[Rfam]
RNA: Flavo-1 RNA
Organism: Flavobacterium johnsoniae
RNA sequence: CUAUAGCCCUGAUAGAAGCGGUAUCCUUUUUCUUGCUUCUUUAGCAAGAAAAAGAUACAAGCGGAUAGCAGGAAAUUGC
Number, nucleotide and partner (000 for none) at each position: 001c000002u000003a000004u000005a000006g000007c000008c000009c071010u070011g069012a000013u067014a066015g000016a000017a000018g062019c061020g000021g000022u000023a056024u055025c054026c000027u000028u000029u051030u050031u049032c048033u047034u046035g045036c044037u000038u000039c000040u000041u000042u000043a000044g036045c035046a034047a033048g032049a031050a030051a029052a000053a000054g025055a024056u023057a000058c000059a000060a000061g019062c018063g000064g000065a000066u014067a013068g000069c011070a010071g009072g000073a000074a000075a000076u000077u000078g000079c000